[Rfam]
RNA sequence: UUUUCAGUAUAAGUAUGUCCCAUGUAAUAUCUGGGACAUACUGAUACUAACU
Numbered sequence: 001u002u003u004u005c006a007g008u009a010u011a012a013g014u015a016u017g018u019c020c021c022a023u024g025u026a027a028u029a030u031c032u033g034g035g036a037c038a039u040a041c042u043g044a045u046a047c048u049a050a051c052u
Base pairs, nucleotide, nucleotide: 006048007047008046009045010044012042014040015039016038018036019035020034021033
This 52-nucleotide RNA from Sciurus carolinensis belongs to the Rfam family "mir-1302 microRNA precursor family". The literature on the family includes a 2008 paper in Genome Res by Morin et al., "Application of massively parallel sequencing to microRNA profiling and discovery in human embryonic stem cells".